[Rfam]
RNA: Actinobacteria sRNA Ms_AS-4
RNA sequence: CUUGGGAUUGGCGUAACGGUCGGGGUCAUCCCCGAACUCGCCGAGCACCCGGGCGCCGAGCACAUCGCCGAGUCCUGGCUGA
Numbered sequence: 001c002u003u004g005g006g007a008u009u010g011g012c013g014u015a016a017c018g019g020u021c022g023g024g025g026u027c028a029u030c031c032c033c034g035a036a037c038u039c040g041c042c043g044a045g046c047a048c049c050c051g052g053g054c055g056c057c058g059a060g061c062a063c064a065u066c067g068c069c070g071a072g073u074c075c076u077g078g079c080u081g082a
Base pairs, nucleotide, nucleotide: 008044009043010042011041012040013039018038019037020036023033024032025031055079056078057077059076060075062073063072
Dot-bracket structure: .......((((((....(((..(((.....)))..)))))))))..........(((.((.((........)).)))))...